S10-Clostridia ribosomal protein leader: a 99-nucleotide RNA sequence from Tumebacillus flagellatus. The match comes from Rfam's covariance-model search (38 bits). The organism belongs to Tumebacillus, within Bacteria. It is annotated as a cis-regulatory leader. On this family, see Eckert and Weinberg, BMC Microbiol 2020: "Discovery of 20 novel ribosomal leader candidates in bacteria and archaea".

[Rfam]
RNA sequence: UGACUGCGAUGAUGCAAGAGGUUGCUGAAGUGCCGGAUUCGCCAUAUGCGGCACCGAUCAGGUUAAAUUCUUGCGGAGUAUGUCCAAGUAAAUGGGCGA
Dot-bracket structure: .............(((.(((....((((.............................))))......))).)))......((((((......)))))).
Numbered sequence: 001u002g003a004c005u006g007c008g009a010u011g012a013u014g015c016a017a018g019a020g021g022u023u024g025c026u027g028a029a030g031u032g033c034c035g036g037a038u039u040c041g042c043c044a045u046a047u048g049c050g051g052c053a054c055c056g057a058u059c060a061g062g063u064u065a066a067a068u069u070c071u072u073g074c075g076g077a078g079u080a081u082g083u084c085c086a087a088g089u090a091a092a093u094g095g096g097c098g099a
Stems, first nucleotide, its partner, number of pairs: 014074003018070003025061004081098006